RNA sequence: GCUCUGCUAUAAUUUUAUACUUUUGGCUCAUCCCCCUGGGCCUCUCAUGGUGUCCCAUGCCAGAGCAAACCCAGCCCCAAACUAUUGCCUGGCCUCUGCCAGUAGGCUGCAGGCACUGAAGCAGUUUGCACAGUG
Numbered sequence: 001g002c003u004c005u006g007c008u009a010u011a012a013u014u015u016u017a018u019a020c021u022u023u024u025g026g027c028u029c030a031u032c033c034c035c036c037u038g039g040g041c042c043u044c045u046c047a048u049g050g051u052g053u054c055c056c057a058u059g060c061c062a063g064a065g066c067a068a069a070c071c072c073a074g075c076c077c078c079a080a081a082c083u084a085u086u087g088c089c090u091g092g093c094c095u096c097u098g099c100c101a102g103u104a105g106g107c108u109g110c111a112g113g114c115a116c117u118g119a120a121g122c123a124g125u126u127u128g129c130a131c132a133g134u135g
Stems, first nucleotide, its partner, number of pairs: 001060002006054001008052001015050004025042002027039002072128003076124001083118002088113002090109006
Shown here is a 135-nucleotide RNA from Bison bison, a member of the family "Small nucleolar RNA SNORA42/SNORA80 family". About the family: The members of this family belong to the H/ACA class of snoRNAs that guide the sites of modification of uridines to pseudouridines. Human ACA42 (SNORA42) was cloned from HeLa cells by immunoprecipitation with anti-GAR1 antibody. Its is predicted to guide the pseudouridylation of residues U109 and U572 of 18S rRNA. ACA42 shares the same host gene with ACA26, ACA46, ACA50. This family also includes mammalian snoRNA ACA67 (SNORA80) which was identified by computational screening and its expression in mouse experimentally verified by Northern blot and primer extension analysis. ACA67 is proposed to guide the pseudouridylation of the same 18S rRNA residues as ACA42. Rfam links the family to the GO terms RNA processing and nucleolus. For this family Rfam cites "A computational screen for mammalian pseudouridylation guide H/ACA RNAs" (Schattner et al., RNA, 2006). By type it is an H/ACA-box small nucleolar RNA.